[Rfam]
RNA sequence: AGGUUAUGAUGCGGGCAUUCAAUGAGAAGAUCAGUGAAACGAUCCCAGGCCUCUGAAAAGGAUUCAUGAGGGUUUUGGUGGAAAAAAUGAAUCUUUUAAAGCAU
Dot-bracket structure: (.(((...................................................((..............))........................).)).)
Numbered sequence: 001a002g003g004u005u006a007u008g009a010u011g012c013g014g015g016c017a018u019u020c021a022a023u024g025a026g027a028a029g030a031u032c033a034g035u036g037a038a039a040c041g042a043u044c045c046c047a048g049g050c051c052u053c054u055g056a057a058a059a060g061g062a063u064u065c066a067u068g069a070g071g072g073u074u075u076u077g078g079u080g081g082a083a084a085a086a087a088u089g090a091a092u093c094u095u096u097u098a099a100a101g102c103a104u
Stems, first nucleotide, its partner, number of pairs: 001104001003102002005099001057074002

Shown here is a 104-nucleotide RNA sequence from Coptis chinensis, a member of the family "Plant small nucleolar RNA R71". Pairs were carried over by alignment from the consensus structure, which was predicted with PFOLD.